RNA sequence: CAUCGGUCACCGCUCAAUCGUCCAUCUGGACGAACCGGGGAACCACAGAUUUCGGAGCGAUCCGAAUUGGGGUGAAUCUCGCGUGCCUUCUACCCGAUGGUGCGUGCGUAGGGCCAUUCUCUCGGCCCGAACCCGACAGCUAACUCGGUCGGCGGUAGGGAGAACUAAA
Numbered sequence: 001c002a003u004c005g006g007u008c009a010c011c012g013c014u015c016a017a018u019c020g021u022c023c024a025u026c027u028g029g030a031c032g033a034a035c036c037g038g039g040g041a042a043c044c045a046c047a048g049a050u051u052u053c054g055g056a057g058c059g060a061u062c063c064g065a066a067u068u069g070g071g072g073u074g075a076a077u078c079u080c081g082c083g084u085g086c087c088u089u090c091u092a093c094c095c096g097a098u099g100g101u102g103c104g105u106g107c108g109u110a111g112g113g114c115c116a117u118u119c120u121c122u123c124g125g126c127c128c129g130a131a132c133c134c135g136a137c138a139g140c141u142a143a144c145u146c147g148g149u150c151g152g153c154g155g156u157a158g159g160g161a162g163a164a165c166u167a168a169a
Stems, first nucleotide, its partner, number of pairs: 011154004018033005034149006044069002070134003078108001080106008111128004
Record summary: Shown here is a 169-nucleotide sequence from Gordonia soli, a member of the family "c-di-AMP riboswitch aptamer (ydaO/yuaA leader)". The organism belongs to Gordonia soli, within Bacteria. It scores 78 bits against the family's covariance model.